[Rfam]
RNA sequence: UAAUCAGAUAGAGGCGCAUUGUCAAUUAUUAGCACUUUUGAGUACUAUAGGGUACAAAGAUUUAGUGUAAAAGGUGGAAAUGCCGAAAUCAACUCACCCCUAUUCGGUGAUUUGAUUGGGCCGUUAUUUAAAAAAUAGCGGACUGUCGUACAUUUGUACGUUGAGCUAUUGGUCGU
Numbered sequence: 001u002a003a004u005c006a007g008a009u010a011g012a013g014g015c016g017c018a019u020u021g022u023c024a025a026u027u028a029u030u031a032g033c034a035c036u037u038u039u040g041a042g043u044a045c046u047a048u049a050g051g052g053u054a055c056a057a058a059g060a061u062u063u064a065g066u067g068u069a070a071a072a073g074g075u076g077g078a079a080a081u082g083c084c085g086a087a088a089u090c091a092a093c094u095c096a097c098c099c100c101u102a103u104u105c106g107g108u109g110a111u112u113u114g115a116u117u118g119g120g121c122c123g124u125u126a127u128u129u130a131a132a133a134a135a136u137a138g139c140g141g142a143c144u145g146u147c148g149u150a151c152a153u154u155u156g157u158a159c160g161u162u163g164a165g166c167u168a169u170u171g172g173u174c175g176u
Base pairs, nucleotide, nucleotide: 007170008169009168010167011166016083017082018081019080020079022077023076024075032068033067034066035065036064087117088116089115090114091113092112094110095109096108097107098106118144119143121141122140123139124138125137126136127135128134147160148159149158150157151156
Annotation
A member of the RNA family "Lysine riboswitch aptamer" from Companilactobacillus allii, 176 nucleotides long. For this family Rfam cites "Riboswitches Control Fundamental Biochemical Pathways in Bacillus subtilis and Other Bacteria" (Mandal et al., Cell, 2003). Riboswitches are metabolite binding domains within certain messenger RNAs that serve as precision sensors for their corresponding targets. Allosteric rearrangement of mRNA structure is mediated by ligand binding, and this results in modulation of gene expression. This family includes riboswitches that sense lysine in a number of genes involved in lysine metabolism, including lysC. Pairs were carried over by alignment from the consensus structure, which is taken from published work. The match comes from Rfam's covariance-model search (102 bits). Rfam links the family to the GO term lysine biosynthetic process. Rfam 15.1 lists 3,224 matches to the family in 1,923 species.